[Rfam]
RNA sequence: GGUGUUCUGCGCUUCUCGACAGGAAAUAACAUAUCCUGAGACCUUAGUGAUCUCCAAGGGAGCUGUCCCUGAUCAAGCCCGUGGGCUUUUUCAUAUGGCGCCCACCUAUUUUGUAGGUUCCCGGGAUCAACUUUUUCCAUCGGUCGUUGUGGAUCACCA
Numbered sequence: 001g002g003u004g005u006u007c008u009g010c011g012c013u014u015c016u017c018g019a020c021a022g023g024a025a026a027u028a029a030c031a032u033a034u035c036c037u038g039a040g041a042c043c044u045u046a047g048u049g050a051u052c053u054c055c056a057a058g059g060g061a062g063c064u065g066u067c068c069c070u071g072a073u074c075a076a077g078c079c080c081g082u083g084g085g086c087u088u089u090u091u092c093a094u095a096u097g098g099c100g101c102c103c104a105c106c107u108a109u110u111u112u113g114u115a116g117g118u119u120c121c122c123g124g125g126a127u128c129a130a131c132u133u134u135u136u137c138c139a140u141c142g143g144u145c146g147u148u149g150u151g152g153a154u155c156a157c158c159a
Base pairs, nucleotide, nucleotide: 002157003156004155006153007152008151009150010149011148012146015143017142018141019140034126035125036124037123040120041119042117043116058103059102060101062099063098064097065096066095071092072091075088076087077086078085079084
Dot-bracket structure: .(((.(((((((..(.(((..............((((..((((..............(((.(((((....((..(((((....)))))..))..))))).)))............)).))..)))).............))))..).)))))).)))..

Annotation:
Shown here is a 159-nucleotide RNA sequence from Bartonella quintana, a member of the family "6S / SsrS RNA". Rfam describes the family as follows. E. coli 6S RNA was the first non coding RNA to be sequenced, but its function was unknown until recently. It consists of 184 nucleotides that fold into an extended hairpin structure with a large single-stranded internal bulge. The 6S RNA specifically associates with RNA polymerase holoenzyme containing the sigma70 specificity factor. This interaction represses expression from a sigma70-dependent promoter during stationary phase. 6S RNA homologs have recently been identified in most bacterial genomes. Taxonomically the source falls in Bartonella quintana (Bacteria, Alphaproteobacteria, Bartonellaceae, Bartonella). A reference for the family is Barrick et al. (2005), "6S RNA is a widespread regulator of eubacterial RNA polymerase that resembles an open promoter", RNA. The sequence is in the family's curated seed alignment.